[Rfam]
RNA: SAH (S-adenosyl-L-homocysteine) riboswitch aptamer
Organism: Entomomonas asaccharolytica
RNA sequence: CUUAUCGAGGAGCGCUGCAGCAACAAGCAAGUUGUCAGGCUCGAUUAGUGGCAUACAGGUCCACCCAUAAAACUUUCCAAACGGCGCUCAUAUAAA
Numbered sequence: 001c002u003u004a005u006c007g008a009g010g011a012g013c014g015c016u017g018c019a020g021c022a023a024c025a026a027g028c029a030a031g032u033u034g035u036c037a038g039g040c041u042c043g044a045u046u047a048g049u050g051g052c053a054u055a056c057a058g059g060u061c062c063a064c065c066c067a068u069a070a071a072a073c074u075u076u077c078c079a080a081a082c083g084g085c086g087c088u089c090a091u092a093u094a095a096a
Base pairs, nucleotide, nucleotide: 002047004045005044006043007042008041021034022033023032024031